Rfam assigns this 205-nucleotide RNA sequence to the family "raiA RNA". Rfam classes the family as a riboswitch. The sequence is in the family's curated seed alignment.
RNA sequence: UACAUAACGGGUCUGUGGUUGAAAGUCGAGGCCAGUCGCAGGCGAAACGAUCCACAUAAGCAAUGAGAAAUUGUGAGCAUGGUGCGGCUUAGAUGUAAGACCUGCCGACAUAGUAUGUCGAGAGGAGUAGUAGUGGGGAGCACAGCUUAAGAGCGAACCUUCCAGCAGGCGAGUGUGGGGGCAAAGACCAGGUCAGCCGUAUGAA
Numbered sequence: 001u002a003c004a005u006a007a008c009g010g011g012u013c014u015g016u017g018g019u020u021g022a023a024a025g026u027c028g029a030g031g032c033c034a035g036u037c038g039c040a041g042g043c044g045a046a047a048c049g050a051u052c053c054a055c056a057u058a059a060g061c062a063a064u065g066a067g068a069a070a071u072u073g074u075g076a077g078c079a080u081g082g083u084g085c086g087g088c089u090u091a092g093a094u095g096u097a098a099g100a101c102c103u104g105c106c107g108a109c110a111u112a113g114u115a116u117g118u119c120g121a122g123a124g125g126a127g128u129a130g131u132a133g134u135g136g137g138g139a140g141c142a143c144a145g146c147u148u149a150a151g152a153g154c155g156a157a158c159c160u161u162c163c164a165g166c167a168g169g170c171g172a173g174u175g176u177g178g179g180g181g182c183a184a185a186g187a188c189c190a191g192g193u194c195a196g197c198c199g200u201a202u203g204a205a
Base pairs, nucleotide, nucleotide: 001205003203004202005201006200008199009198010197013196014195015194016190017189018188019187020186029176031174032042034089035088036087037086038085039084040083051082052081059074062071080183101169102168103167104166105165106120107119108118109117110116124162125161126160127159133154134153139147140146141145